[Rfam]
RNA sequence: GGACAAUGAGGAUUAACAUGUAUUAGGUUCGCUCGUCAUAAUGGCAAUAUAUUUUGCCUUGCCGAUGAUUUUAUGAUCUGAGUCC
Numbered sequence: 001g002g003a004c005a006a007u008g009a010g011g012a013u014u015a016a017c018a019u020g021u022a023u024u025a026g027g028u029u030c031g032c033u034c035g036u037c038a039u040a041a042u043g044g045c046a047a048u049a050u051a052u053u054u055u056g057c058c059u060u061g062c063c064g065a066u067g068a069u070u071u072u073a074u075g076a077u078c079u080g081a082g083u084c085c
Stems, first nucleotide, its partner, number of pairs: 001085004046060002
RNA: Small nucleolar RNA Z43
Organism: Macleaya cordata